[Rfam]
RNA sequence: AAAAUGGCGUUGACAAGGAGGAGUACAUACUCACCCGAAGCACAGAGAGAAGAUGGUUGGUGAAAAUCUUCGUGACGGAAGUAUGGAAGUAGCCUUUGAGCUGUGAACCGAAAAGAUACGAUCUGAGUAGACUUCACCGGAAAUUUCCACCGUUAAAAGGAAAGGAUAUCGGAUGAUUUAAAAUAAGAAUCUAUCCCGUAUUGGCAGAGUGCAGAUAGUCAUAUCUGAAUUUAGGUGGUACCACGGACGCAUACAGUUCGCCCUGAGC
Numbered sequence: 001a002a003a004a005u006g007g008c009g010u011u012g013a014c015a016a017g018g019a020g021g022a023g024u025a026c027a028u029a030c031u032c033a034c035c036c037g038a039a040g041c042a043c044a045g046a047g048a049g050a051a052g053a054u055g056g057u058u059g060g061u062g063a064a065a066a067u068c069u070u071c072g073u074g075a076c077g078g079a080a081g082u083a084u085g086g087a088a089g090u091a092g093c094c095u096u097u098g099a100g101c102u103g104u105g106a107a108c109c110g111a112a113a114a115g116a117u118a119c120g121a122u123c124u125g126a127g128u129a130g131a132c133u134u135c136a137c138c139g140g141a142a143a144u145u146u147c148c149a150c151c152g153u154u155a156a157a158a159g160g161a162a163a164g165g166a167u168a169u170c171g172g173a174u175g176a177u178u179u180a181a182a183a184u185a186a187g188a189a190u191c192u193a194u195c196c197c198g199u200a201u202u203g204g205c206a207g208a209g210u211g212c213a214g215a216u217a218g219u220c221a222u223a224u225c226u227g228a229a230u231u232u233a234g235g236u237g238g239u240a241c242c243a244c245g246g247a248c249g250c251a252u253a254c255a256g257u258u259c260g261c262c263c264u265g266a267g268c
Base pairs, nucleotide, nucleotide: 007101008100015096016095017094018093026085027084028083029082030081031080039073049071050070051069052068053067054066104136105135106134107133138152139151140150212227213226214225215224216223217222232265233264234263235262244260245259246258247257
RNA: T-box leader
Organism: Anaerosolibacter carboniphilus